[Rfam]
RNA sequence: UGUGACGGUCAGCUUUGCAGGGUGGGCAGUCAGCCUCGGGUCAUGCCGCUGUGCAAACCCAUGCAAAACUGACCGCAUGC
Number, nucleotide and partner (000 for none) at each position: 001u000002g000003u000004g000005a000006c075007g074008g073009u072010c071011a070012g069013c000014u067015u066016u065017g064018c063019a062020g060021g059022g000023u056024g000025g000026g054027c053028a052029g000030u000031c000032a050033g049034c048035c000036u000037c000038g000039g000040g000041u000042c000043a000044u000045g000046c000047c000048g034049c033050u032051g000052u028053g027054c026055a000056a023057a000058c000059c021060c020061a000062u019063g018064c017065a016066a015067a014068a000069c012070u011071g010072a009073c008074c007075g006076c000077a000078u000079g000080c000
A member of the RNA family "mir-19 microRNA precursor family" from Sinocyclocheilus grahami, 80 nucleotides long.
It scores 52 bits against the family's covariance model.
Clan: mir-19 clan.
Taxonomically the source falls in Sinocyclocheilus (Eukaryota, Gnathostomata, Cyprinoidei, Cyprininae).
Rfam 15.1 lists 2,337 matches to the family in 651 species.
The literature on the family includes a 2002 paper in Genes Dev by Mourelatos et al., "miRNPs: a novel class of ribonucleoproteins containing numerous microRNAs".